[Rfam]
RNA sequence: AUUCCUUCUUAUCCUGCACUCAGUUUGUUGAUUGGCUGUGGAGCCUGGAAAUGGAGGAUAAAUGAUAUUGAAGGAGUGCUAUUACUUGACGUCUUCUGAGGAUGUGGAGAUAGUGUGAAUUUGAACAAUU
Number, nucleotide and partner (000 for none) at each position: 001a000002u000003u058004c057005c056006u055007u054008c053009u000010u000011a000012u049013c048014c047015u000016g044017c043018a000019c040020u000021c038022a037023g036024u035025u034026u000027g000028u000029u000030g000031a000032u000033u000034g025035g024036c023037u022038g021039u000040g019041g000042a000043g017044c016045c000046u000047g014048g013049a012050a000051a000052u000053g008054g007055a006056g005057g004058a003059u000060a000061a000062a000063u000064g000065a000066u000067a000068u124069u123070g122071a121072a120073g000074g000075a000076g116077u115078g114079c113080u000081a000082u000083u000084a000085c109086u108087u107088g105089a000090c104091g103092u102093c101094u100095u000096c000097u000098g000099a000100g094101g093102a092103u091104g090105u088106g000107g087108a086109g085110a000111u000112a000113g079114u078115g077116u076117g000118a000119a000120u072121u071122u070123g069124a068125a000126c000127a000128a000129u000130u000